[Rfam]
RNA sequence: AGUCGCAUCGCAGUUGAUUGGGAAACUCAUCAAUUGAUAUGAAAUGCCGAGACAAGCUUUCUUCUCCAAUGGCGGGCCACGCCUUUAGGUAUGCUUUUAGCACGGUGGAUUACAAAGGAGGGGGGCACUCAAAUCCUGUUAUUCGGAGUUUCAUCACAUCCUUCGGUGCGACUUUUUUU
Numbered sequence: 001a002g003u004c005g006c007a008u009c010g011c012a013g014u015u016g017a018u019u020g021g022g023a024a025a026c027u028c029a030u031c032a033a034u035u036g037a038u039a040u041g042a043a044a045u046g047c048c049g050a051g052a053c054a055a056g057c058u059u060u061c062u063u064c065u066c067c068a069a070u071g072g073c074g075g076g077c078c079a080c081g082c083c084u085u086u087a088g089g090u091a092u093g094c095u096u097u098u099a100g101c102a103c104g105g106u107g108g109a110u111u112a113c114a115a116a117g118g119a120g121g122g123g124g125g126c127a128c129u130c131a132a133a134u135c136c137u138g139u140u141a142u143u144c145g146g147a148g149u150u151u152c153a154u155c156a157c158a159u160c161c162u163u164c165g166g167u168g169c170g171a172c173u174u175u176u177u178u179u
Stems, first nucleotide, its partner, number of pairs: 056126003060123002063121005070114002077108004081090003093101003
RNA: Bacteroidales-1 6S-Bacteroidales RNA suggested
Organism: Coprobacter secundus